[Rfam]
RNA sequence: GUGUCCUGACCUUUUCCUGGCUGUUACCCUCACCAGAGCUGUGGUGGUAGGGUCUGGGGGUGGACACAGAUCAACUUACCUCUCGUGUUAGGAGGGUUGCCAAAGGUAUGUGCAAACCCUUAAAGGCAAGAGAGGACACU
Numbered sequence: 001g002u003g004u005c006c007u008g009a010c011c012u013u014u015u016c017c018u019g020g021c022u023g024u025u026a027c028c029c030u031c032a033c034c035a036g037a038g039c040u041g042u043g044g045u046g047g048u049a050g051g052g053u054c055u056g057g058g059g060g061u062g063g064a065c066a067c068a069g070a071u072c073a074a075c076u077u078a079c080c081u082c083u084c085g086u087g088u089u090a091g092g093a094g095g096g097u098u099g100c101c102a103a104a105g106g107u108a109u110g111u112g113c114a115a116a117c118c119c120u121u122a123a124a125g126g127c128a129a130g131a132g133a134g135g136a137c138a139c140u
Stems, first nucleotide, its partner, number of pairs: 002066005010059002026053003030047004079135006088125002092121007099113002102111001104109001
The record is a 140-nucleotide RNA sequence from Leptosomus discolor, which matches "Small Cajal body specific RNA 11" in Rfam.
Rfam 15.1 lists 853 matches to the family in 557 species.
The source organism's lineage runs through Eukaryota, Metazoa, Archelosauria, Saurischia and Leptosomus.
scaRNAs are a specific class of small nuclear RNAs which localise to the Cajal bodies and guide the modification of RNA polymerase II transcribed spliceosomal RNAs U1, U2, U4, U5 and U12. ACA57 belongs to the H/ACA box class of guide RNAs as it has the predicted hairpin-hinge-hairpin-tail structure, conserved H/ACA-box motifs and is found associated with GAR1. ACA57 is predicted to guide the pseudouridylation of the U5 spliceosomal RNA at position U43.